[Rfam]
RNA sequence: AUGACAUCCGGAGUUCCCCCAAACACUUCAGUGGAAUUAAUUGGUAGUUUACCGAAUAACAAAUUUCCAAUGAAGUGUUCGGGAGAACUCUAGAGGACAU
Numbered sequence: 001a002u003g004a005c006a007u008c009c010g011g012a013g014u015u016c017c018c019c020c021a022a023a024c025a026c027u028u029c030a031g032u033g034g035a036a037u038u039a040a041u042u043g044g045u046a047g048u049u050u051a052c053c054g055a056a057u058a059a060c061a062a063a064u065u066u067c068c069a070a071u072g073a074a075g076u077g078u079u080c081g082g083g084a085g086a087a088c089u090c091u092a093g094a095g096g097a098c099a100u
Stems, first nucleotide, its partner, number of pairs: 005096001007094002011090006018083003022079009032069004
This 100-nucleotide RNA from Arabidopsis lyrata belongs to the Rfam family "mir-395 microRNA precursor family". The family's consensus secondary structure was predicted with PFOLD. Rfam's curators write: mir-395 was identified in both Arabidopsis thaliana and Oryza sativa computationally and was later experimentally verified. mir-395 is thought to target mRNAs coding for ATP sulphurylases. On this family, see Jones-Rhoades and Bartel, Mol Cell 2004: "Computational Identification of Plant MicroRNAs and Their Targets, Including a Stress-Induced miRNA".